Nucleotides: 075
Stems, first nucleotide, its partner, number of pairs: 001074003005070005011064008020055004025050003030045001034041002
Number, partner (000 for none) and nucleotide at each position: 001074g002073g003072c004000c005070c006069a007068a008067a009066u010000u011064u012063g013062a014061a015060g016059u017058a018057g019000a020055g021054u022053g023052g024000a025050u026049u027048a028000a029000g030045a031000g032000u033000a034041u035040c036000a037000u038000c039000c040035g041034a042000c043000c044000c045030u046000a047000c048027u049026a050025a051000a052023c053022u054021a055020c056000c057018c058017u059016a060015c061014u062013u063012c064011g065000a066009g067008u068007u069006u070005g071000u072003g073002c074001c075000c
The record is a 75-nucleotide RNA sequence from Haemonchus placei, which matches "mir-5928 microRNA precursor family" in Rfam. Rfam 15.1 lists 1,672 matches to the family in 12 species.